[Rfam]
RNA: mir-15 microRNA precursor family
RNA sequence: CUCGGCUGUGCCCUAGCAGCACGUCAAAACUGGAGUUAACUGGUUAAAUCCUCCAGUAUUGCCUUGCUGCUUGAGCGAGGUAGGA
Dot-bracket structure: .((.((......(.(((((((.(..((.(((((((...............))))))).))..).))))))).)......)).)).